[Rfam]
RNA sequence: ACGCCCUGCCUCGUGAUCGUCUUCUCAACUUUCACCGGGGCGGGUGGUUAAAAACAGGAGGCCCCCGCGAGGACGUGACUCGCGGGGGCCAACU
Numbered sequence: 001a002c003g004c005c006c007u008g009c010c011u012c013g014u015g016a017u018c019g020u021c022u023u024c025u026c027a028a029c030u031u032u033c034a035c036c037g038g039g040g041c042g043g044g045u046g047g048u049u050a051a052a053a054a055c056a057g058g059a060g061g062c063c064c065c066c067g068c069g070a071g072g073a074c075g076u077g078a079c080u081c082g083c084g085g086g087g088g089c090c091a092a093c094u
Stems, first nucleotide, its partner, number of pairs: 002046002005044007013035004019029002056094002060090012

sodF sRNA: a 94-nucleotide RNA sequence from Streptomyces sp. ISL-98. For this family Rfam cites "Inverse regulation of Fe- and Ni-containing SOD genes by a Fur family regulator Nur through small RNA processed from 3'UTR of the sodF mRNA" (Kim et al., Nucleic Acids Res, 2014). It scores 76 bits against the family's covariance model. Its family is annotated with negative regulation of translation, mRNA binding and regulation of mRNA stability in the Gene Ontology. The family's RNA type in Rfam is small RNA.